[Rfam]
Annotation:
A member of the RNA family "mir-3473 microRNA precursor family" from Jaculus jaculus, 76 nucleotides long. The source organism's lineage runs through Eukaryota, Opisthokonta, Dipnotetrapodomorpha, Dipodoidea and Jaculus.
RNA sequence: ACCACUGAGCCAUCUCUCCAGCCCUGAAGCUUGCUUUUAAAAAUAGACUGUUGGGCUGGAGAGAUGGCUCAGUGGU
Numbered sequence: 001a002c003c004a005c006u007g008a009g010c011c012a013u014c015u016c017u018c019c020a021g022c023c024c025u026g027a028a029g030c031u032u033g034c035u036u037u038u039a040a041a042a043a044u045a046g047a048c049u050g051u052u053g054g055g056c057u058g059g060a061g062a063g064a065u066g067g068c069u070c071a072g073u074g075g076u
Base pairs, nucleotide, nucleotide: 002075003074004073005072006071007070008069009068010067011066012065013064014063015062016061017060018059019058020057021056022055023054024053
The family has 5 seed sequences and 1,094 matches in Rfam 15.1. It scores 79 bits against the family's covariance model.